[Rfam]
RNA: Small nucleolar RNA F1/F2/snoR5a
Organism: Acer yangbiense
RNA sequence: ACUUGCCCAUGGUAUAUGAUGCCCAGAUCUUUAUUCUUCUGUAGCUGGGCAUCUCGUUUUUAGGGCAGAAAUGUAAAGAACAGUUUUUGCGACACGGAUUGCUUGAUUUGUUAAGCUUUCUGUUACUGUAUCGCUGUUGACAUCU
Numbered sequence: 001a002c003u004u005g006c007c008c009a010u011g012g013u014a015u016a017u018g019a020u021g022c023c024c025a026g027a028u029c030u031u032u033a034u035u036c037u038u039c040u041g042u043a044g045c046u047g048g049g050c051a052u053c054u055c056g057u058u059u060u061u062a063g064g065g066c067a068g069a070a071a072u073g074u075a076a077a078g079a080a081c082a083g084u085u086u087u088u089g090c091g092a093c094a095c096g097g098a099u100u101g102c103u104u105g106a107u108u109u110g111u112u113a114a115g116c117u118u119u120c121u122g123u124u125a126c127u128g129u130a131u132c133g134c135u136g137u138u139g140a141c142a143u144c145u
Stems, first nucleotide, its partner, number of pairs: 004067005018053009028043001033040001079138005094123005101116003
Dot-bracket structure: ...(((((.........(((((((((.(....(......)..).))))))))).........)))))...........(((((..........(((((..(((..........)))..)))))..........))))).......